A member of the RNA family "FMN riboswitch aptamer (RFN element)" from Clostridium saccharoperbutylacetonicum, 117 nucleotides long. NCBI's taxonomy places the organism under Bacteria, Bacillati, Bacillota, Clostridiaceae, Clostridium saccharoperbutylacetonicum N1-4.
RNA sequence: AAAAAUCUUCGGGGUUGGGUGAGAUUCCCUACUGGCGGUAUAGCCCGCUAGCUUUAAAAAGCAGAUUCGGUUAGAUUCCGAAGCCUACAGUUAUAGUCUGGAUGAUAGAAGAUAGUU
Number, nucleotide and partner (000 for none) at each position: 001a000002a000003a000004a000005a113006u112007c111008u110009u109010c108011g000012g000013g000014g000015u000016u000017g029018g028019g027020u000021g000022a000023g000024a000025u000026u000027c019028c018029c017030u000031a097032c096033u000034g085035g048036c047037g046038g045039u000040a000041u000042a000043g084044c083045c038046c037047g036048c035049u000050a000051g062052c061053u060054u000055u000056a000057a000058a000059a000060a053061g052062c051063a000064g000065a000066u082067u081068c080069g079070g078071u000072u000073a000074g000075a000076u000077u000078c070079c069080g068081a067082a066083g044084c043085c034086u000087a000088c100089a099090g098091u000092u000093a000094u000095a000096g032097u031098c090099u089100g088101g000102a000103u000104g000105a000106u000107a000108g010109a009110a008111g007112a006113u005114a000115g000116u000117u000
Background
The family's consensus secondary structure is taken from published work. A search with the family's covariance model found it, with a score of 105 bits.